[Rfam]
RNA: U4atac minor spliceosomal RNA
Organism: Didymodactylos carnosus
RNA sequence: UUAGUCCUUGUUUAGGAGAGCAUAACUAUUCAAUGAGCGACUUGGCGAGGGUAGUUCUGCUGACAAACAUUAAUUGAAAACUAUCGCAUCAAACCUUAUUUUGAUGCAAUUUUUGGCUGU
Number, nucleotide and partner (000 for none) at each position: 001u000002u000003a000004g000005u019006c018007c000008u016009u015010g000011u000012u000013u000014a000015g009016g008017a000018g006019a005020g060021c059022a058023u000024a000025a055026c054027u053028a052029u051030u050031c049032a000033a000034u000035g000036a000037g046038c045039g000040a000041c000042u000043u000044g000045g038046c037047g000048a000049g031050g030051g029052u028053a027054g026055u025056u000057c000058u022059g021060c020061u000062g000063a000064c000065a000066a000067a000068c000069a000070u000071u000072a000073a000074u000075u000076g000077a000078a000079a000080a000081c000082u000083a000084u000085c000086g107087c106088a105089u104090c103091a102092a101093a100094c000095c000096u000097u000098a000099u000100u093101u092102u091103g090104a089105u088106g087107c086108a000109a000110u000111u000112u000113u000114u000115g000116g000117c000118u000119g000120u000